[Rfam]
RNA sequence: UGAUUCAUUGCAUCUUUUUAAUCAGGGAAAUCACAGUUGAGAGAGUUCUAAGAGAAGAGAAACGUGAGAUCUCUGUUUUUCUUUCUCCACUGCGUUUCCUUGGUUAAAGAUAUGUGCUGGAUCA
Dot-bracket structure: (((((((...(((..(((((((((((((((.(.((((.(((((.......................................))))).)))).))))))))))))))))..)))...)))))))
MIR1509 microRNA precursor family: a 124-nucleotide sequence from Cajanus cajan. Its family is annotated with miRNA-mediated post-transcriptional gene silencing and RISC complex in the Gene Ontology. Lineage of the source: Eukaryota > Euphyllophyta > Gunneridae > Papilionoideae > Cajanus.